[Rfam]
RNA sequence: GAUCAAUGAUGAAACUAGCCAAAUCUGAGCAUCAGAAGGCUUUCCAGUCUACCUGAUGCAUGAUCUCUACAGUUCUGAGA
Numbered sequence: 001g002a003u004c005a006a007u008g009a010u011g012a013a014a015c016u017a018g019c020c021a022a023a024u025c026u027g028a029g030c031a032u033c034a035g036a037a038g039g040c041u042u043u044c045c046a047g048u049c050u051a052c053c054u055g056a057u058g059c060a061u062g063a064u065c066u067c068u069a070c071a072g073u074u075c076u077g078a079g080a
Stems, first nucleotide, its partner, number of pairs: 029059005037050004
This 80-nucleotide sequence belongs to the Rfam family "Small nucleolar RNA U2-19". Rfam classes the family as a C/D-box small nucleolar RNA. The literature on the family includes a 2004 paper in Curr Biol by Tycowski et al., "Guide RNAs with 5' Caps and Novel Box C/D snoRNA-like Domains for Modification of snRNAs in Metazoa".